[Rfam]
RNA sequence: UGCCUCACAGUUUCCCGACCCUCAUUUUCCGUAAGGAAUGUCUACUGCAGACCCCCUUCCCGGGCUCGUUCACACAUGACAUGCUGCUCUCGAACCUGUAUCAGAACUUCGCUGUCUGCAGCAUAUGGAAUUGUCAUGUGAUACGCGUCGUUGGUAACUAGACGACACGACCUGGCGGGGGGAAUGAGCUUCGGAACUUAACCCUAAGAUAGAAA
Numbered sequence: 001u002g003c004c005u006c007a008c009a010g011u012u013u014c015c016c017g018a019c020c021c022u023c024a025u026u027u028u029c030c031g032u033a034a035g036g037a038a039u040g041u042c043u044a045c046u047g048c049a050g051a052c053c054c055c056c057u058u059c060c061c062g063g064g065c066u067c068g069u070u071c072a073c074a075c076a077u078g079a080c081a082u083g084c085u086g087c088u089c090u091c092g093a094a095c096c097u098g099u100a101u102c103a104g105a106a107c108u109u110c111g112c113u114g115u116c117u118g119c120a121g122c123a124u125a126u127g128g129a130a131u132u133g134u135c136a137u138g139u140g141a142u143a144c145g146c147g148u149c150g151u152u153g154g155u156a157a158c159u160a161g162a163c164g165a166c167a168c169g170a171c172c173u174g175g176c177g178g179g180g181g182g183a184a185u186g187a188g189c190u191u192c193g194g195a196a197c198u199u200a201a202c203c204c205u206a207a208g209a210u211a212g213a214a215a
Stems, first nucleotide, its partner, number of pairs: 009198003015194004
Shown here is a 215-nucleotide part of an RNA from Epichloe festucae, a member of the family "Ascomycota telomerase RNA". The organism belongs to Epichloe festucae, within Eukaryota. Its Rfam clan is "Telomerase clan". By type it is a non-coding RNA gene. A reference for the family is Qi et al. (2013), "The common ancestral core of vertebrate and fungal telomerase RNAs", Nucleic Acids Res.